[Rfam]
RNA sequence: AACAGGCUAGCGCGGGGCAAAUGGAAGGUCGCCUUAGUGGCGGCAGCGCUUUUUAGCGUGGGUUCUUCCUCCCGGGGUCUGUUUUUAU
Number, nucleotide and partner (000 for none) at each position: 001a083002a082003c081004a080005g079006g078007c077008u000009a000010g000011c075012g000013c074014g073015g072016g071017g000018c000019a000020a000021a000022u000023g069024g068025a067026a066027g065028g044029u043030c042031g041032c040033c039034u000035u000036a000037g000038u000039g033040g032041c031042g030043g029044c028045a000046g000047c058048g057049c056050u055051u000052u000053u000054u000055a050056g049057c048058g047059u000060g000061g000062g000063u000064u000065c027066u026067u025068c024069c023070u000071c016072c015073c014074g013075g011076g000077g007078u006079c005080u004081g003082u002083u001084u000085u000086u000087a000088u000

Rfam assigns this 88-nucleotide RNA from Desulfoscipio geothermicus to the family "DUF3800-VII RNA". The family's RNA type in Rfam is small RNA. The family's consensus secondary structure is taken from published work.